The family of this 102-nucleotide sequence from Andreesenella acetica is "Purine riboswitch aptamer".
Pairs were carried over by alignment from the consensus structure, which is taken from published work.
About the family: Riboswitches are metabolite binding domains within certain messenger RNAs that serve as precision sensors for their corresponding targets.
RNA sequence: AGACGUAUGUUUAUAGAUUCUCGUAUAAUUAUGGAGAUAGGGUCCAUCAGUUUCUACCAGACUACCGUAAAUGGUCUGACUACGGGAGAUUUAUUUCGAUGU
Numbered sequence: 001a002g003a004c005g006u007a008u009g010u011u012u013a014u015a016g017a018u019u020c021u022c023g024u025a026u027a028a029u030u031a032u033g034g035a036g037a038u039a040g041g042g043u044c045c046a047u048c049a050g051u052u053u054c055u056a057c058c059a060g061a062c063u064a065c066c067g068u069a070a071a072u073g074g075u076c077u078g079a080c081u082a083c084g085g086g087a088g089a090u091u092u093a094u095u096u097c098g099a100u101g102u
Stems, first nucleotide, its partner, number of pairs: 018088008029049001031047005058078007